[Rfam]
RNA: ASpks TB sRNA
RNA sequence: CUUGAUGGAGCCGAGCCACAGCGGCUGGUCGCCGGACCGCUCCCGGCCGUACGUCGCCAGAAGCGCCUGCGCCUC
Numbered sequence: 001c002u003u004g005a006u007g008g009a010g011c012c013g014a015g016c017c018a019c020a021g022c023g024g025c026u027g028g029u030c031g032c033c034g035g036a037c038c039g040c041u042c043c044c045g046g047c048c049g050u051a052c053g054u055c056g057c058c059a060g061a062a063g064c065g066c067c068u069g070c071g072c073c074u075c
Base pairs, nucleotide, nucleotide: 014026015025016024017023033069038065039064043060045058047056049054